[Rfam]
RNA sequence: ACGUUCGGAUAAUCGCUGCUUUUUAGCAGAGGAAAGUCCAUGCUCGCACGAGCUGUGAUGCUCGUAGUGAUCGUGCCUGGUGAAACAAUAAGCCAGGGCAUUCCGCUUUUGCGGUUUGACGGCAGGUGAAGGGCCUAAGUCUUCGGAUAAGGCCUUAUAUCCUUGAAAGUGCCACAGUGACGAAGUUCUUUUAGAAAUAAAAGAAGUGGAACGAGGUAAACCCCGCGAGCGAGAAACUCAAACUAUGGUAGGGGCACUUUUCCCGAGGAAUCUGAACGAGGGAAGAGGCACGACAAUCUUGUCGGUGCAGAUAGAUGAUUAUCCCUUGGCGAAUGUGCCUGCAAAUUCGCUAAGGACAGAACAUGGCUUAUAGAA
Numbered sequence: 001a002c003g004u005u006c007g008g009a010u011a012a013u014c015g016c017u018g019c020u021u022u023u024u025a026g027c028a029g030a031g032g033a034a035a036g037u038c039c040a041u042g043c044u045c046g047c048a049c050g051a052g053c054u055g056u057g058a059u060g061c062u063c064g065u066a067g068u069g070a071u072c073g074u075g076c077c078u079g080g081u082g083a084a085a086c087a088a089u090a091a092g093c094c095a096g097g098g099c100a101u102u103c104c105g106c107u108u109u110u111g112c113g114g115u116u117u118g119a120c121g122g123c124a125g126g127u128g129a130a131g132g133g134c135c136u137a138a139g140u141c142u143u144c145g146g147a148u149a150a151g152g153c154c155u156u157a158u159a160u161c162c163u164u165g166a167a168a169g170u171g172c173c174a175c176a177g178u179g180a181c182g183a184a185g186u187u188c189u190u191u192u193a194g195a196a197a198u199a200a201a202a203g204a205a206g207u208g209g210a211a212c213g214a215g216g217u218a219a220a221c222c223c224c225g226c227g228a229g230c231g232a233g234a235a236a237c238u239c240a241a242a243c244u245a246u247g248g249u250a251g252g253g254g255c256a257c258u259u260u261u262c263c264c265g266a267g268g269a270a271u272c273u274g275a276a277c278g279a280g281g282g283a284a285g286a287g288g289c290a291c292g293a294c295a296a297u298c299u300u301g302u303c304g305g306u307g308c309a310g311a312u313a314g315a316u317g318a319u320u321a322u323c324c325c326u327u328g329g330c331g332a333a334u335g336u337g338c339c340u341g342c343a344a345a346u347u348c349g350c351u352a353a354g355g356a357c358a359g360a361a362c363a364u365g366g367c368u369u370a371u372a373g374a375a
Base pairs, nucleotide, nucleotide: 004375005374006373007371008323009322010321011320012319013318014317016029017028018027019026020025034369035368036367038366039365040364041363042362043233044232045231046230047229048065049064050063051062052061053060071228072227073226074225075224076097077096078095079094080093081092098120099118100117103114104113105112106111121223122222124163125162126161132154133153134152135151139148140147141146169221170220171217172216173215186205187204188203189202190201191200192199193198237253238252239251257287258286259285260284261283262282263281288308289307290306291304292303293302294301295300325354326353327352328351329350330349331348332347333346